[Rfam]
RNA: Streptomyces sRNA 4677
Organism: Streptomyces sp. ISL-63
RNA sequence: UUUUCAGUAGCCGCUUUCAAGCACUGGCUAAAUAACCCGACCCAACCCUGACCGGACCGUGGCUGCCCUUGGGCGCGCGGGCGCGUAAGCGCGCGAAGGCGUCGUCACUCACACGGGUGAAGUGUGCCAACCGAGCUGGAUUUUGGCCCUGUUGGCGGGCAUAUGCUCACGCUGACCACAACCGCAGACAUGAGACGGCCCCCGGCCGGGACUGGCAUCCCGACCGAAGGCCUGACCAACGAGGAAGCAGGAGACUUCCCG
Numbered sequence: 001u002u003u004u005c006a007g008u009a010g011c012c013g014c015u016u017u018c019a020a021g022c023a024c025u026g027g028c029u030a031a032a033u034a035a036c037c038c039g040a041c042c043c044a045a046c047c048c049u050g051a052c053c054g055g056a057c058c059g060u061g062g063c064u065g066c067c068c069u070u071g072g073g074c075g076c077g078c079g080g081g082c083g084c085g086u087a088a089g090c091g092c093g094c095g096a097a098g099g100c101g102u103c104g105u106c107a108c109u110c111a112c113a114c115g116g117g118u119g120a121a122g123u124g125u126g127c128c129a130a131c132c133g134a135g136c137u138g139g140a141u142u143u144u145g146g147c148c149c150u151g152u153u154g155g156c157g158g159g160c161a162u163a164u165g166c167u168c169a170c171g172c173u174g175a176c177c178a179c180a181a182c183c184g185c186a187g188a189c190a191u192g193a194g195a196c197g198g199c200c201c202c203c204g205g206c207c208g209g210g211a212c213u214g215g216c217a218u219c220c221c222g223a224c225c226g227a228a229g230g231c232c233u234g235a236c237c238a239a240c241g242a243g244g245a246a247g248c249a250g251g252a253g254a255c256u257u258c259c260c261g
Stems, first nucleotide, its partner, number of pairs: 105120006135170001137169003197232004203226003208221004243259005